[Rfam]
RNA sequence: AAGGAUGCUUCAUGUUUUACGCAAUUUUACUACUUAGCCUGCUACUACUCGCAACAUUGAUGCGCGGUCGGCUAAUGGGUAAAAAAUGAAGCAUACCACCCCUUAGAAAAACCCGCGCUAGUCGCGGGUUUUUUU
Numbered sequence: 001a002a003g004g005a006u007g008c009u010u011c012a013u014g015u016u017u018u019a020c021g022c023a024a025u026u027u028u029a030c031u032a033c034u035u036a037g038c039c040u041g042c043u044a045c046u047a048c049u050c051g052c053a054a055c056a057u058u059g060a061u062g063c064g065c066g067g068u069c070g071g072c073u074a075a076u077g078g079g080u081a082a083a084a085a086a087u088g089a090a091g092c093a094u095a096c097c098a099c100c101c102c103u104u105a106g107a108a109a110a111a112c113c114c115g116c117g118c119u120a121g122u123c124g125c126g127g128g129u130u131u132u133u134u135u
Stems, first nucleotide, its partner, number of pairs: 003096001005094003009090005015084001019080002022077001026075002042070001044068003050064004108132010
This 135-nucleotide sequence from Proteus myxofaciens belongs to the Rfam family "Leucine operon leader". Rfam's curators write: At least 6 amino acid operons are known to be regulated by attenuation. In each a leader sequence of 150-200 bp is found upstream of the first gene in the operon. This leader sequence can assume two different secondary structures known as the terminator and the anti-terminator structure. In each case the leader also codes for very short peptide sequence that is rich in the end product amino acid of the operon. Rfam classes the family as a cis-regulatory leader. Gene Ontology term of the family: leucine biosynthetic process. The source organism's lineage runs through Bacteria, Pseudomonadati, Gammaproteobacteria, Enterobacterales and Proteus myxofaciens. It scores 56 bits against the family's covariance model.